This 318-nucleotide sequence from Microcaecilia unicolor belongs to the Rfam family "7SK RNA". From the family's description: 7SK was discovered as an abundant small nuclear RNA in the mid-70s but a possible function has only recently been suggested. Two independent studies have found that 7SK RNA binds the CDK9/cyclin T complex (known as elongation factor P-TEFb). It scores 234 bits against the family's covariance model. The family's RNA type in Rfam is non-coding RNA gene. The base pairs follow the family's consensus structure, which is taken from published work. Rfam 15.1 lists 49,373 matches to the family in 668 species. The literature on the family includes a 2002 paper in Curr Biol by Blencowe, "Transcription: surprising role for an elusive small nuclear RNA".

[Rfam]
RNA sequence: GGAUGAGAGAGCGAUCUGGCUGCGACAUCUGUCACCCCAUUGAUCGCUAGGGUUGAUUCGGCUGAUCUGGCUGGCUAGGCGGGUGUCCCCUUCCUCCCUCACCGCUCCAUGUUCGUCCCUCCCGAAGCUGUGCGCUCGGUAGAAGAGGAUGACCUCCCGAUAGAAGAAGUACCGUUCUUCGGUCAAGGGUAUACCAGUAGCUGCGCUCCCCUGCUAGAACUUCCAAACAAGCUCGAGGAAGCUUCACUGGAGUCCAGGCGGGCGUCAACUUCUCAGCACUACCAUCGAGCACGUCAUUCCUUGGCGUCGAGGCAGGCU
Numbered sequence: 001g002g003a004u005g006a007g008a009g010a011g012c013g014a015u016c017u018g019g020c021u022g023c024g025a026c027a028u029c030u031g032u033c034a035c036c037c038c039a040u041u042g043a044u045c046g047c048u049a050g051g052g053u054u055g056a057u058u059c060g061g062c063u064g065a066u067c068u069g070g071c072u073g074g075c076u077a078g079g080c081g082g083g084u085g086u087c088c089c090c091u092u093c094c095u096c097c098c099u100c101a102c103c104g105c106u107c108c109a110u111g112u113u114c115g116u117c118c119c120u121c122c123c124g125a126a127g128c129u130g131u132g133c134g135c136u137c138g139g140u141a142g143a144a145g146a147g148g149a150u151g152a153c154c155u156c157c158c159g160a161u162a163g164a165a166g167a168a169g170u171a172c173c174g175u176u177c178u179u180c181g182g183u184c185a186a187g188g189g190u191a192u193a194c195c196a197g198u199a200g201c202u203g204c205g206c207u208c209c210c211c212u213g214c215u216a217g218a219a220c221u222u223c224c225a226a227a228c229a230a231g232c233u234c235g236a237g238g239a240a241g242c243u244u245c246a247c248u249g250g251a252g253u254c255c256a257g258g259c260g261g262g263c264g265u266c267a268a269c270u271u272c273u274c275a276g277c278a279c280u281a282c283c284a285u286c287g288a289g290c291a292c293g294u295c296a297u298u299c300c301u302u303g304g305c306g307u308c309g310a311g312g313c314a315g316g317c318u
Stems, first nucleotide, its partner, number of pairs: 001108003005102001007100003011096001013093002018090002024087010035074002037070003042067004046062003117169001119166002121163001122139004127135002140160001142158001148156002200270001202268001206264001210262005221252004230244002300316004305312001